[Rfam]
RNA sequence: GGCCUCCGUCUGCAGGGUGGUCGAUCAUAGGGCUCCGUGAUCGAUCGCCCAGCAGAGGGAGGCC
Number, nucleotide and partner (000 for none) at each position: 001g064002g063003c062004c061005u060006c059007c058008g000009u056010c055011u054012g053013c052014a000015g050016g049017g048018u047019g046020g045021u044022c043023g042024a041025u040026c039027a038028u037029a000030g035031g000032g000033c000034u000035c030036c000037g028038u027039g026040a025041u024042c023043g022044a021045u020046c019047g018048c017049c016050c015051a000052g013053c012054a011055g010056a009057g000058g007059g006060a005061g004062g003063c002064c001
RNA: mir-9242 microRNA precursor family
Organism: Cnephaeus nilssonii